[Rfam]
RNA: terC RNA
RNA sequence: ACACGGUACCGGGCCCCUCUGGCGAGAGUUUUACGGCGCUCUCGUGAUGUCGGUACUGCCGC
Numbered sequence: 001a002c003a004c005g006g007u008a009c010c011g012g013g014c015c016c017c018u019c020u021g022g023c024g025a026g027a028g029u030u031u032u033a034c035g036g037c038g039c040u041c042u043c044g045u046g047a048u049g050u051c052g053g054u055a056c057u058g059c060c061g062c
Base pairs, nucleotide, nucleotide: 006056007055008054009053010052011051012050022045023044024043025042026041027040028039029038
Dot-bracket structure: .....(((((((.........((((((((........))))))))....)))))))......